[Rfam]
RNA sequence: GGGCACCUACGGGGGCCUUCAUACCAUAGGCGGGGAGACCCGCUGUUAAGCAAACGGAAGACAGACA
Number, nucleotide and partner (000 for none) at each position: 001g018002g017003g016004c015005a000006c014007c013008u012009a000010c000011g000012g008013g007014g006015g004016c003017c002018u001019u000020c000021a000022u000023a000024c000025c000026a000027u000028a000029g044030g043031c042032g041033g040034g000035g000036a000037g000038a000039c000040c033041c032042g031043c030044u029045g000046u000047u000048a000049a000050g000051c000052a000053a000054a000055c000056g000057g000058a000059a000060g000061a000062c000063a000064g000065a000066c000067a000
RNA: L2-Alphaproteobacteria ribosomal protein leader